[Rfam]
RNA: mir-16 microRNA precursor family
Organism: Chrysemys picta
RNA sequence: GCCACCACCACAGCAGCGCAGAAGUAAGGAUGGCAUGAUAUGGUAUUGCCACCCUUACUUCUGUGCUGCUGCUGGUGAGGC
Numbered sequence: 001g002c003c004a005c006c007a008c009c010a011c012a013g014c015a016g017c018g019c020a021g022a023a024g025u026a027a028g029g030a031u032g033g034c035a036u037g038a039u040a041u042g043g044u045a046u047u048g049c050c051a052c053c054c055u056u057a058c059u060u061c062u063g064u065g066c067u068g069c070u071g072c073u074g075g076u077g078a079g080g081c
Base pairs, nucleotide, nucleotide: 001081002080003079006077007076008075011074012070013069014068015067016066017065018064019063021060023059024058025057026056027055028054029053